[Rfam]
RNA sequence: GUGACAGAAGAGAGUGAGCACACAUGGUUCUUGCAUGGAUAAAUCCCAUGCUUAAAAGCUAUGCGUGCUCUCUCUCUAUCUGUCAC
Numbered sequence: 001g002u003g004a005c006a007g008a009a010g011a012g013a014g015u016g017a018g019c020a021c022a023c024a025u026g027g028u029u030c031u032u033g034c035a036u037g038g039a040u041a042a043a044u045c046c047c048a049u050g051c052u053u054a055a056a057a058g059c060u061a062u063g064c065g066u067g068c069u070c071u072c073u074c075u076c077u078a079u080c081u082g083u084c085a086c
Base pairs, nucleotide, nucleotide: 001086002085003084004083005082006081007080008079010076011075012074013073014072016070017069018068019067020066021065023063024062025061

A member of the RNA family "mir-156 microRNA precursor family" from Nicotiana sylvestris, 86 nucleotides long. Rfam's curators write: This family represents the plant microRNA (miRNA) precursor mir-156. Taxonomically the source falls in Nicotiana (Eukaryota, Mesangiospermae, Nicotianoideae, Nicotianeae). Its family is annotated with miRNA-mediated post-transcriptional gene silencing and RISC complex in the Gene Ontology. On this family, see Ambros, Cell 2001: "microRNAs: tiny regulators with great potential".